[Rfam]
RNA sequence: ACGAUAGUAUGGUAGAAAGAAAUAUCUGAAUCUUUCUACCAUACUAUCUACUAUUGUUAUUGUAGUGGAUAUUUAUUGUAGUG
Dot-bracket structure: ..((((((((((((((((((....)......)))))))))))))))))...................................
A member of the RNA family "Plastid-psbM 3UTR RNA" from Rosa rugosa, 83 nucleotides long. From the family's description: Plastid psbM is a non-coding RNA (ncRNA) recognised in plastids. It was found in the three prime untranslated region (3UTR) of psbM gene, its 3UTR location suggests a role in transcript maturation. The sequence is in the family's curated seed alignment. By type it is a cis-regulatory element.